The family of this 169-nucleotide RNA from Digitaria exilis is "MIR2118 microRNA precursor family". The source organism's lineage runs through Eukaryota, Tracheophyta, Spermatophyta, Mesangiospermae and Digitaria. The family has 7 seed sequences and 2,377 matches in Rfam 15.1. The family's consensus secondary structure was predicted with RNAalifold.

[Rfam]
RNA sequence: GCGAGGAAGAGGAAGAAAGAGAGUCGCUAAGAGCGGCAGGAAUAGGAACAUAGAGGAAAGCCUCAAGCUCAUUUCCUCCUCAAGAAUUGGAGGUGGAAAUCUGCUUUGUGUUUUCCUGAUGCCUCCUAUUCCUAUUGAUCUUAGGUGCUCCUUUCUCUUCCUUUCGGCU
Numbered sequence: 001g002c003g004a005g006g007a008a009g010a011g012g013a014a015g016a017a018a019g020a021g022a023g024u025c026g027c028u029a030a031g032a033g034c035g036g037c038a039g040g041a042a043u044a045g046g047a048a049c050a051u052a053g054a055g056g057a058a059a060g061c062c063u064c065a066a067g068c069u070c071a072u073u074u075c076c077u078c079c080u081c082a083a084g085a086a087u088u089g090g091a092g093g094u095g096g097a098a099a100u101c102u103g104c105u106u107u108g109u110g111u112u113u114u115c116c117u118g119a120u121g122c123c124u125c126c127u128a129u130u131c132c133u134a135u136u137g138a139u140c141u142u143a144g145g146u147g148c149u150c151c152u153u154u155c156u157c158u159u160c161c162u163u164u165c166g167g168c169u
Stems, first nucleotide, its partner, number of pairs: 009160005015154003021150003027144006034137002038133010049121003053117001055116007